[Rfam]
RNA sequence: AAUUGUCUUCAGGGCAGGGUGUAAUUCCCGACCGGCGGUAAUAAUUGCUGAAAAUUUUCAACAACUUAGUUUGGUAAGAGAACGAGAGUGAUUUAAGUCCGCGAGCUGCAGGGCAGCUGAUCUGGUGCGAUUCCAGAACCGACAGUAUAGUCUGGAUGGGAGAAGACUAAG
Numbered sequence: 001a002a003u004u005g006u007c008u009u010c011a012g013g014g015c016a017g018g019g020u021g022u023a024a025u026u027c028c029c030g031a032c033c034g035g036c037g038g039u040a041a042u043a044a045u046u047g048c049u050g051a052a053a054a055u056u057u058u059c060a061a062c063a064a065c066u067u068a069g070u071u072u073g074g075u076a077a078g079a080g081a082a083c084g085a086g087a088g089u090g091a092u093u094u095a096a097g098u099c100c101g102c103g104a105g106c107u108g109c110a111g112g113g114c115a116g117c118u119g120a121u122c123u124g125g126u127g128c129g130a131u132u133c134c135a136g137a138a139c140c141g142a143c144a145g146u147a148u149a150g151u152c153u154g155g156a157u158g159g160g161a162g163a164a165g166a167c168u169a170a171g
Base pairs, nucleotide, nucleotide: 003169005167006166007165008164009163010162017029018028019027031151032150033141034140035102036101037100038099105117106116107115121137122136123135124134125133143154144153145152
RNA: FMN riboswitch aptamer (RFN element)